RNA sequence: ACGGGAUGCCUCGUUGUUUCUGCGCUGCUGGACCCUAGACAAGCCCAUCAUCGCAGGCCACGGGGCAUCCCUUUUGUCGUUUCCGCAACCUGGACGGUCAUUCACCUGUGGAUCGAG
Numbered sequence: 001a002c003g004g005g006a007u008g009c010c011u012c013g014u015u016g017u018u019u020c021u022g023c024g025c026u027g028c029u030g031g032a033c034c035c036u037a038g039a040c041a042a043g044c045c046c047a048u049c050a051u052c053g054c055a056g057g058c059c060a061c062g063g064g065g066c067a068u069c070c071c072u073u074u075u076g077u078c079g080u081u082u083c084c085g086c087a088a089c090c091u092g093g094a095c096g097g098u099c100a101u102u103c104a105c106c107u108g109u110g111g112a113u114c115g116a117g
Stems, first nucleotide, its partner, number of pairs: 003071011015060002019056001021055004026050002029047001031045001033043001098115001100113005
Dot-bracket structure: ..(((((((((((.((..(.((((.((.(.(.(.........).).).)).)))))..)))))))))))))..........................(.(((((....))))).)..
A member of the RNA family "Actinobacteria sRNA Ms_IGR-7" from Actinomadura meyerae, 117 nucleotides long. Rfam classes the family as a small RNA. The family has 14 seed sequences and 463 matches in Rfam 15.1.